[Rfam]
RNA sequence: UUGAUUGGGCCAUUUUUCGACCUUAUAUUUGAGUUUAGGGUUGGAGGGGAUUUUUUCCCUUCUUCUGACUGUCUUAGUAAGCUGGCAGCUAAUUACUAUGGAAUCAAUCAGGAUGAUGACUAACUUCAUCAUAACCCUUUCUUCAUGUU
Numbered sequence: 001u002u003g004a005u006u007g008g009g010c011c012a013u014u015u016u017u018c019g020a021c022c023u024u025a026u027a028u029u030u031g032a033g034u035u036u037a038g039g040g041u042u043g044g045a046g047g048g049g050a051u052u053u054u055u056u057c058c059c060u061u062c063u064u065c066u067g068a069c070u071g072u073c074u075u076a077g078u079a080a081g082c083u084g085g086c087a088g089c090u091a092a093u094u095a096c097u098a099u100g101g102a103a104u105c106a107a108u109c110a111g112g113a114u115g116a117u118g119a120c121u122a123a124c125u126u127c128a129u130c131a132u133a134a135c136c137c138u139u140u141c142u143u144c145a146u147g148u149u
Base pairs, nucleotide, nucleotide: 030145031144032143033142037138038137039136040135041134044061045060046059065111066110067109068108113132114131115130116129117128118127
RNA: Short Intergenic Abundant RNA